Background
This 75-nucleotide RNA from Pleurostoma richardsiae belongs to the Rfam family "bZIP non canonical Hac1/Xbp1 intron". Rfam classes the family as a small RNA. The family's consensus secondary structure was predicted with RNAfold. Rfam's curators write: bZIP intron RNA is a non-canonical intron that was first reported in HAC1 gene in yeast and XBP1 gene in Metazoa. The family has 112 seed sequences and 1,325 matches in Rfam 15.1.
RNA sequence: GGACUCUCCCGACGUGACACAACAUCCUGCUGAGGUGUUGUGCGUUGACCUGCAGUGUCAGUCGGCGGAGCUUCC
Numbered sequence: 001g002g003a004c005u006c007u008c009c010c011g012a013c014g015u016g017a018c019a020c021a022a023c024a025u026c027c028u029g030c031u032g033a034g035g036u037g038u039u040g041u042g043c044g045u046u047g048a049c050c051u052g053c054a055g056u057g058u059c060a061g062u063c064g065g066c067g068g069a070g071c072u073u074c075c
Stems, first nucleotide, its partner, number of pairs: 001075003006070002009065005021039006046060004